Notes
Rfam assigns this 242-nucleotide sequence from Streptomyces pseudogriseolus to the family "Streptomyces sRNA 4677". The pairing is the family consensus, mapped onto this sequence. It scores 206 bits against the family's covariance model. By type it is a small RNA. Rfam describes the family as follows. Located in the intergenic region between anti-sigma factor SCO4677 gene and a putative regulatory protein gene SCO4676. scr4677 expression requires the SCO4677 activity and scr4677 sRNA itself seem to affect the levels of the SCO4676-associated transcripts.
RNA sequence: AGCUCCGGUGCCGUCGGCGCCUUCCCCUAUGAGUACUCGGGGGAAAAGAACCUCACCGAGCCCCACCUUUCCGCCCGAGGCAGUCGAUCACUCGGGCGGGUGAACAUCCGCCGCUCAACUGGCGUUUCGAGCCCUCGGCACCUCUACGCUCAGCGCAACGCAACCCGAAAAAAACUUCGGCCCCCGCCGGGAUUGCCGUCCCAGUGCGAGGGCCUGACCACCAAGGAAGAAGCACCUUCCCG
Numbered sequence: 001a002g003c004u005c006c007g008g009u010g011c012c013g014u015c016g017g018c019g020c021c022u023u024c025c026c027c028u029a030u031g032a033g034u035a036c037u038c039g040g041g042g043g044a045a046a047a048g049a050a051c052c053u054c055a056c057c058g059a060g061c062c063c064c065a066c067c068u069u070u071c072c073g074c075c076c077g078a079g080g081c082a083g084u085c086g087a088u089c090a091c092u093c094g095g096g097c098g099g100g101u102g103a104a105c106a107u108c109c110g111c112c113g114c115u116c117a118a119c120u121g122g123c124g125u126u127u128c129g130a131g132c133c134c135u136c137g138g139c140a141c142c143u144c145u146a147c148g149c150u151c152a153g154c155g156c157a158a159c160g161c162a163a164c165c166c167g168a169a170a171a172a173a174a175c176u177u178c179g180g181c182c183c184c185c186g187c188c189g190g191g192a193u194u195g196c197c198g199u200c201c202c203a204g205u206g207c208g209a210g211g212g213c214c215u216g217a218c219c220a221c222c223a224a225g226g227a228a229g230a231a232g233c234a235c236c237u238u239c240c241c242g
Base pairs, nucleotide, nucleotide: 007222008221009220010219016075017074018073019072088103089102090101091100092099093098119153120152121151122150179214180213181212182211183210185208186207187206189202190201191200192199225240226239227238228237229236